[Rfam]
RNA: Ma3 gene ribosomal frameshift signal
RNA sequence: GGGAAAACAGGACAGGGCUAGGGACAUGAGCCACCCUGAGUCCUCAGGCGAAUAGGCUCA
Dot-bracket structure: .............((((((.(((....[[[[[..))).))))))..........]]]]].